[Rfam]
The family of this 53-nucleotide sequence from Oncorhynchus mykiss is "U7 small nuclear RNA". It scores 36 bits against the family's covariance model. The base pairs follow the family's consensus structure, which was predicted with PFOLD. From the family's description: Animal histone pre-mRNAs are spliced by a different mechanism than nuclear pre-mRNAs and self-splicing introns.

RNA sequence: AACUGUACUCUUUUAGUAUUUCUCCAGCAGGUUUCCUCAAGGAGAAAGCCUCC
Numbered sequence: 001a002a003c004u005g006u007a008c009u010c011u012u013u014u015a016g017u018a019u020u021u022c023u024c025c026a027g028c029a030g031g032u033u034u035c036c037u038c039a040a041g042g043a044g045a046a047a048g049c050c051u052c053c
Stems, first nucleotide, its partner, number of pairs: 030050005036044003